The family of this 75-nucleotide sequence from Neomicrococcus aestuarii is "putative aminoglycoside riboswitch / attI site". Rfam 15.1 lists 39 matches to the family in 38 species. It is one of the family's seed sequences. From the family's description: Conserved RNA structure found upstream of the bacterial aminoglycosides antibiotic-resistant genes: aminoglycoside acetyl transferase (AAC) and aminoglycoside adenyl transferase (AAD). It has putative short open reading frame (ORF) that encode leader peptide upstream of the resistance gene. 75 nucleotide long sequence from the first ribosome binding site (SD1) up to the coding sequence was shown to have the regulatory role, and it was considered the minima functional RNA. Aminoglycosides bind to specific regions of AAC/AAD 5' leader and induce change in the RNA structure. The drug binding induces expression of the resistance protein. The leader RNA is widely distributed among antibiotic-resistant bacterial pathogens.
RNA sequence: GGAGCAGCAACGAUGUUACGCAGCAGGGCAGUCGCCCUAAAACAAAGUUAGGCAUCAUGGGUGAAUUUUUCCCUG
Numbered sequence: 001g002g003a004g005c006a007g008c009a010a011c012g013a014u015g016u017u018a019c020g021c022a023g024c025a026g027g028g029c030a031g032u033c034g035c036c037c038u039a040a041a042a043c044a045a046a047g048u049u050a051g052g053c054a055u056c057a058u059g060g061g062u063g064a065a066u067u068u069u070u071c072c073c074u075g
Stems, first nucleotide, its partner, number of pairs: 004072001006017001008015002020056001023053002026037004038050003059069001061067001